[Rfam]
This 157-nucleotide sequence from Streptomyces sp. ISL-11 belongs to the Rfam family "c-di-AMP riboswitch aptamer (ydaO/yuaA leader)". Rfam's curators write: This family represents a conserved RNA structure found upstream of the ydaO and yuaA genes in Bacillus subtilis and related genes in other bacteria.
RNA sequence: GGGCAACCAUCGCCGAAUCCCCGCACGGCGCGAGCCAGGGGAACCGGGGACCCACAUGUCCCCUGGGGUGAAUCGGUUCCCUUUCCGGAGGGAGUCGUAGGAGACCUUCCUGCUCCGAACCCGUCAGCUAACCCGGUAGGCGAGAAGGAAGGAAAGG
Number, nucleotide and partner (000 for none) at each position: 001g000002g000003g000004c000005a000006a000007c000008c000009a000010u000011c142012g141013c140014c139015g000016a000017a000018u042019c041020c040021c039022c038023g000024c000025a000026c000027g000028g000029c000030g000031c000032g000033a000034g000035c000036c000037a000038g022039g021040g020041g019042a018043a137044c136045c135046g134047g133048g132049g000050a000051c000052c000053c065054a064055c000056a000057u000058g000059u000060c000061c000062c000063c000064u054065g053066g122067g121068g120069u000070g000071a000072a000073u000074c097075g096076g095077u094078u093079c092080c091081c090082u000083u000084u000085c000086c000087g000088g000089a000090g081091g080092g079093a078094g077095u076096c075097g074098u000099a000100g116101g115102a114103g113104a000105c000106c000107u000108u000109c000110c000111u000112g000113c103114u102115c101116c100117g000118a000119a000120c068121c067122c066123g000124u000125c000126a000127g000128c000129u000130a000131a000132c048133c047134c046135g045136g044137u043138a000139g014140g013141c012142g011143a000144g000145a000146a000147g000148g000149a000150a000151g000152g000153a000154a000155a000156g000157g000